[Rfam]
Rfam assigns this 85-nucleotide RNA from Sporobacter termitidis to the family "c-di-GMP-I riboswitch aptamer". From the family's description: GEMM was predicted in a large-scale screen for bacterial structured RNA regulatory elements. Pairs were carried over by alignment from the consensus structure, which is taken from published work.
RNA sequence: AAACGAUACUGGCAAACCUGCUGAAAAGCAGGGACGCAAAGCCACGGGUCUACAGUCUUUUGACCAUGACAGCCGGGUUGCCGAA
Numbered sequence: 001a002a003a004c005g006a007u008a009c010u011g012g013c014a015a016a017c018c019u020g021c022u023g024a025a026a027a028g029c030a031g032g033g034a035c036g037c038a039a040a041g042c043c044a045c046g047g048g049u050c051u052a053c054a055g056u057c058u059u060u061u062g063a064c065c066a067u068g069a070c071a072g073c074c075g076g077g078u079u080g081c082c083g084a085a
Stems, first nucleotide, its partner, number of pairs: 012037002017032006040079004045075003048070003055064003
Dot-bracket structure: ...........((...((((((....))))))...))..((((.((((((....(((....)))...)))..)))))))......